[Rfam]
RNA sequence: CUUGACGGAGCCGAGCCACAGGGGCCGCUCCUCCGGGCGGUGGGCGCCGUAGGUGGCGAUGAGGGCCUGGGCCUC
Numbered sequence: 001c002u003u004g005a006c007g008g009a010g011c012c013g014a015g016c017c018a019c020a021g022g023g024g025c026c027g028c029u030c031c032u033c034c035g036g037g038c039g040g041u042g043g044g045c046g047c048c049g050u051a052g053g054u055g056g057c058g059a060u061g062a063g064g065g066c067c068u069g070g071g072c073c074u075c
Stems, first nucleotide, its partner, number of pairs: 015025003031071003038065001043060001045058001047056003
RNA: ASpks TB sRNA
Organism: Streptomyces mobaraensis